[Rfam]
Enterococcus sRNA 68 (Lacto-3 RNA): a 134-nucleotide RNA. The base pairs follow the family's consensus structure, which is taken from published work. Rfam classes the family as a small RNA.

RNA sequence: UGCGAUGAGGCGACGAGCAAUCAGGUGGGUUCGCCCAUUCCGCGCAAGCGGCGAAGUGAUUGCAAAUCAAACGGGACAUACGUGCUUGCACAACCACAGGAUGUGGAUGUUUGAUGGUGACUGCUGUGAACAGU
Dot-bracket structure: ..................(((((((((((....))))))((((....)))).....))))).............(((((..............((((.....)))))))))........((((.(....)))))